RNA sequence: AAAUGUUGUGUUUAUUGUGAUGUCUGUGGUAACUCUUUAGGUAUUCCUUCGAACAAGAUGCAAAAAGAACUGAAAAUGACAGCCCUUCUACGAGUGAUUAGCCUGGUCGUGAUUAGCGUGGUGGUGAUUAUUAUCCCACCGUGCGGGGCUGCACUUGGACGAGGAAAGGCUUAGAAAACAAGCCUUAACGAACUAAGACCCCCGCACCGAAAGGUCCGGGGGUUUUUUUAUGACCUAAAAACAUCAAUGAGGAGCAGACGAUGCGAUGCAGCACAAAAUUCUGUUUCUCCCGAUUGGC
Numbered sequence: 001a002a003a004u005g006u007u008g009u010g011u012u013u014a015u016u017g018u019g020a021u022g023u024c025u026g027u028g029g030u031a032a033c034u035c036u037u038u039a040g041g042u043a044u045u046c047c048u049u050c051g052a053a054c055a056a057g058a059u060g061c062a063a064a065a066a067g068a069a070c071u072g073a074a075a076a077u078g079a080c081a082g083c084c085c086u087u088c089u090a091c092g093a094g095u096g097a098u099u100a101g102c103c104u105g106g107u108c109g110u111g112a113u114u115a116g117c118g119u120g121g122u123g124g125u126g127a128u129u130a131u132u133a134u135c136c137c138a139c140c141g142u143g144c145g146g147g148g149c150u151g152c153a154c155u156u157g158g159a160c161g162a163g164g165a166a167a168g169g170c171u172u173a174g175a176a177a178a179c180a181a182g183c184c185u186u187a188a189c190g191a192a193c194u195a196a197g198a199c200c201c202c203c204g205c206a207c208c209g210a211a212a213g214g215u216c217c218g219g220g221g222g223u224u225u226u227u228u229u230a231u232g233a234c235c236u237a238a239a240a241a242c243a244u245c246a247a248u249g250a251g252g253a254g255c256a257g258a259c260g261a262u263g264c265g266a267u268g269c270a271g272c273a274c275a276a277a278a279u280u281c282u283g284u285u286u287c288u289c290c291c292g293a294u295u296g297g298c
Stems, first nucleotide, its partner, number of pairs: 005033005012026001014021002037074002040071003044066002048062001049058002084252003090248001092245002098238003101234001103232001106229001108118003120140005126135003141160002144157004163189001168185002171182002195226010206215003253285006262273002